[Rfam]
RNA sequence: GCAAUGUUUCUUGCUCAAAUGAGUAUUCCAAGUCGCACCAGCAAAUGUCAAAAUGCAAACUAAUGCAUAUUUUGGUGCUUGUUUUUGCCAUGCUAAUUUGAGUAAGAAAUGUUG
Numbered sequence: 001g002c003a004a005u006g007u008u009u010c011u012u013g014c015u016c017a018a019a020u021g022a023g024u025a026u027u028c029c030a031a032g033u034c035g036c037a038c039c040a041g042c043a044a045a046u047g048u049c050a051a052a053a054u055g056c057a058a059a060c061u062a063a064u065g066c067a068u069a070u071u072u073u074g075g076u077g078c079u080u081g082u083u084u085u086u087g088c089c090a091u092g093c094u095a096a097u098u099u100g101a102g103u104a105a106g107a108a109a110u111g112u113u114g
Stems, first nucleotide, its partner, number of pairs: 004112005010106011022094005029087002
MIR828 microRNA precursor family: a 114-nucleotide RNA from Cucumis melo. The sequence is in the family's curated seed alignment. A reference for the family is Rajagopalan et al. (2006), "A diverse and evolutionarily fluid set of microRNAs in Arabidopsis thaliana", Genes Dev. Rfam links the family to the GO terms RISC complex and miRNA-mediated post-transcriptional gene silencing.